[Rfam]
The family of this 106-nucleotide RNA from Aspergillus niger is "Small nucleolar RNA Z13/snr52". The source organism's lineage runs through Eukaryota, Ascomycota, leotiomyceta, Aspergillaceae and Aspergillus subgen. Circumdati. The family has 42 seed sequences and 1,203 matches in Rfam 15.1. The base pairs follow the family's consensus structure, which was predicted with PFOLD.
RNA sequence: CUCGAUCAAAUGAUGAAAUAUUUCGGAUGUAAACUCACAGACCUGUUCCGAAUUGCGCAAACAAUUCAUGUGGAUAUUUUCCGUUGCCUUCCUUCUGAAUGAUCGA
Number, nucleotide and partner (000 for none) at each position: 001c000002u000003c105004g104005a103006u000007c000008a000009a000010a000011u000012g000013a000014u000015g000016a000017a000018a000019u000020a000021u000022u000023u000024c083025g082026g081027a080028u000029g000030u000031a000032a000033a000034c000035u000036c000037a000038c000039a000040g000041a000042c000043c000044u000045g000046u000047u000048c000049c000050g000051a000052a000053u000054u000055g000056c000057g000058c000059a000060a000061a000062c000063a000064a000065u000066u000067c000068a000069u000070g000071u000072g000073g000074a000075u000076a000077u000078u000079u000080u027081c026082c025083g024084u000085u000086g000087c000088c000089u000090u000091c000092c000093u000094u000095c000096u000097g000098a000099a000100u000101g000102a000103u005104c004105g003106a000